This 133-nucleotide RNA from Xenopus laevis belongs to the Rfam family "Small Cajal body specific RNA 3". The family is grouped with related families in Rfam's "SCARNA3 clan". Rfam describes the family as follows. scaRNAs are a specific class of small nuclear RNAs which localise to the Cajal bodies and guide the modification of RNA polymerase II transcribed spliceosomal RNAs U1, U2, U4, U5 and U12. Its family is annotated with RNA processing, nucleolus and Cajal body in the Gene Ontology. The literature on the family includes a 2002 paper in EMBO J by Darzacq et al., "Cajal body-specific small nuclear RNAs: a novel class of 2'-O-methylation and pseudouridylation guide RNAs". It is annotated as a small Cajal body RNA. The family's consensus secondary structure was predicted with RNAalifold.

RNA sequence: UGUGGAAGCUGCAAUAUCUGUGUGUGCAGUACAAGUGUCUGCCCGCAUUAGCAGCCUUCCUAUAGAAAUAUUGGAGAUCUCUGUCUGGCUCUGCAGAGUAUGGGCUUAGCCAGAUCGUUCCCCUCCAUACAUG
Numbered sequence: 001u002g003u004g005g006a007a008g009c010u011g012c013a014a015u016a017u018c019u020g021u022g023u024g025u026g027c028a029g030u031a032c033a034a035g036u037g038u039c040u041g042c043c044c045g046c047a048u049u050a051g052c053a054g055c056c057u058u059c060c061u062a063u064a065g066a067a068a069u070a071u072u073g074g075a076g077a078u079c080u081c082u083g084u085c086u087g088g089c090u091c092u093g094c095a096g097a098g099u100a101u102g103g104g105c106u107u108a109g110c111c112a113g114a115u116c117g118u119u120c121c122c123c124u125c126c127a128u129a130c131a132u133g
Stems, first nucleotide, its partner, number of pairs: 004060003008055005021047004026042002032037001073126004081117001083115003087111004093105001